Shown here is a 94-nucleotide sequence from Vibrio parahaemolyticus, a member of the family "t44 RNA". It scores 76 bits against the family's covariance model. The family's RNA type in Rfam is small RNA.

RNA sequence: ACCUUUUUAUCUUUAAAUCACACACAUUCCGUCACAUGUUCCGGGGUGCUGAGCAGAAGCUUGGUCGGAAUUAUGGGGGAUGUGGAGGCCUAAC
Numbered sequence: 001a002c003c004u005u006u007u008u009a010u011c012u013u014u015a016a017a018u019c020a021c022a023c024a025c026a027u028u029c030c031g032u033c034a035c036a037u038g039u040u041c042c043g044g045g046g047u048g049c050u051g052a053g054c055a056g057a058a059g060c061u062u063g064g065u066c067g068g069a070a071u072u073a074u075g076g077g078g079g080a081u082g083u084g085g086a087g088g089c090c091u092a093a094c
Stems, first nucleotide, its partner, number of pairs: 023084008035075004040069004048065005
Rfam describes the family as follows. This family consists of a number of bacterial RNA genes of between 135 and 170 bases in length. The t44 gene has been identified in several species of enteric bacteria but homologs have also been identified in Pseudomonas and Coxiella species.